[Rfam]
RNA sequence: UUGCCUGUUGUCAAUGAUGGAUUCUUUUGGAAGCUGAAUAUAACUGAUCUGAAUCAAUAUUUCGUCACUACCACUGAGACAACAGGCAG
Numbered sequence: 001u002u003g004c005c006u007g008u009u010g011u012c013a014a015u016g017a018u019g020g021a022u023u024c025u026u027u028u029g030g031a032a033g034c035u036g037a038a039u040a041u042a043a044c045u046g047a048u049c050u051g052a053a054u055c056a057a058u059a060u061u062u063c064g065u066c067a068c069u070a071c072c073a074c075u076g077a078g079a080c081a082a083c084a085g086g087c088a089g
Stems, first nucleotide, its partner, number of pairs: 001089012
RNA: Small nucleolar RNA SNORD70
Organism: Ibidorhyncha struthersii